Overview
Rfam assigns this 136-nucleotide RNA sequence from Pleuronectes platessa to the family "Small nucleolar RNA SNORA9". It is annotated as an H/ACA-box small nucleolar RNA. The organism belongs to Pleuronectes, within Eukaryota. Clan: SNORA9 clan. Pairs were carried over by alignment from the consensus structure, which was predicted with PFOLD. Its family is annotated with RNA processing and nucleolus in the Gene Ontology. Rfam's curators write: ACA9 is a member of the H/ACA class of snoRNA that guide the sites of modification of uridines to pseudouridines.
[Rfam]
RNA sequence: GUGCAGACCUUUUCCAGCGAGACCCAGCCUGCAGUGGCUCUGUUCUUUCCUAUUGUGUCUGCUAGAGAGACUUGAGGCCGUUUGAGGCCCUGCUGUGUUUCUCCAUGGCGGGGUUAUAGGUAAACCUCAGACACAC
Numbered sequence: 001g002u003g004c005a006g007a008c009c010u011u012u013u014c015c016a017g018c019g020a021g022a023c024c025c026a027g028c029c030u031g032c033a034g035u036g037g038c039u040c041u042g043u044u045c046u047u048u049c050c051u052a053u054u055g056u057g058u059c060u061g062c063u064a065g066a067g068a069g070a071c072u073u074g075a076g077g078c079c080g081u082u083u084g085a086g087g088c089c090c091u092g093c094u095g096u097g098u099u100u101c102u103c104c105a106u107g108g109c110g111g112g113g114u115u116a117u118a119g120g121u122a123a124a125c126c127u128c129a130g131a132c133a134c135a136c
Stems, first nucleotide, its partner, number of pairs: 003062006020046003026039004073129005088113006095106003